[Rfam]
RNA: TPP riboswitch aptamer (THI element)
Organism: Tepiditoga spiralis
RNA sequence: UAUGUCCCACAGGGGUGCUGUUAUUCCACAGCUGAGAUUGAAACGGAAAGUUUCUAACCCUUUUAACUUGAACUGGUUAAUACCAGCGUAAGGAGCGGGAAGUACGUGAGA
Numbered sequence: 001u002a003u004g005u006c007c008c009a010c011a012g013g014g015g016u017g018c019u020g021u022u023a024u025u026c027c028a029c030a031g032c033u034g035a036g037a038u039u040g041a042a043a044c045g046g047a048a049a050g051u052u053u054c055u056a057a058c059c060c061u062u063u064u065a066a067c068u069u070g071a072a073c074u075g076g077u078u079a080a081u082a083c084c085a086g087c088g089u090a091a092g093g094a095g096c097g098g099g100a101a102g103u104a105c106g107u108g109a110g111a
Base pairs, nucleotide, nucleotide: 006099007098008097010095011061012060013059014058017032018031019030020029021028040054041053042052043051067092068091069090070089073086074085075084076083